[Rfam]
Overview: Shown here is a 118-nucleotide RNA sequence from Papaver nudicaule, a member of the family "Small nucleolar RNA snoR111". Pairs were carried over by alignment from the consensus structure, which was predicted with WAR. Taxonomically the source falls in Papaver (Eukaryota, Embryophyta, Mesangiospermae, Papaveraceae). The family has 6 seed sequences and 533 matches in Rfam 15.1.
RNA sequence: AUAUACAGUCGGAGCUAUUAAUCUCUCCCUGUGUGAUACGGAGGAAGAAAGAUAUGGUGAGAAUAUCGUUUCAGACGUCCAUUAACUGAUUGGCGCUCUGAUUGUGUCUCUUCUACAU
Numbered sequence: 001a002u003a004u005a006c007a008g009u010c011g012g013a014g015c016u017a018u019u020a021a022u023c024u025c026u027c028c029c030u031g032u033g034u035g036a037u038a039c040g041g042a043g044g045a046a047g048a049a050a051g052a053u054a055u056g057g058u059g060a061g062a063a064u065a066u067c068g069u070u071u072c073a074g075a076c077g078u079c080c081a082u083u084a085a086c087u088g089a090u091u092g093g094c095g096c097u098c099u100g101a102u103u104g105u106g107u108c109u110c111u112u113c114u115a116c117a118u
Stems, first nucleotide, its partner, number of pairs: 003034005011028004056114002059110003065102004074097001076095004082089002